[Rfam]
Nucleotides: 076
Base pairs, nucleotide, nucleotide: 001076002075004073005072006071008069010067011066013064014063015062018058019057020056021055022054023053024052025051026050027049029047030046031045
Number, partner (000 for none) and nucleotide at each position: 001076g002075c003000u004073g005072g006071g007000u008069g009000c010067u011066g012000a013064c014063c015062u016000g017000u018058g019057a020056g021055u022054u023053g024052a025051c026050a027049g028000u029047c030046a031045g032000u033000c034000c035000u036000a037000u038000c039000u040000g041000a042000a043000u044000u045031c046030u047029g048000u049027c050026u051025g052024u053023u054022a055021a056020c057019u058018c059000u060000g061000g062015a063014g064013g065000c066011c067010a068000c069008c070000c071006c072005u073004c074000u075002g076001u
This 76-nucleotide RNA sequence from Scyliorhinus torazame belongs to the Rfam family "mir-192/215 microRNA precursor family". Rfam links the family to the GO terms RISC complex and miRNA-mediated post-transcriptional gene silencing. Rfam's curators write: This family represents the human microRNA (miRNA) precursors mir-192 and mir-215. Animal miRNAs are transcribed as ~70nt precursors and subsequently processed by the Dicer enzyme to give a ~22nt product. In this case the mature sequence comes from the 5' arm of the precursor. The extents of the hairpin precursors are not generally known and are estimated based on hairpin prediction. A reference for the family is Lagos-Quintana et al. (2003), "New microRNAs from mouse and human", RNA.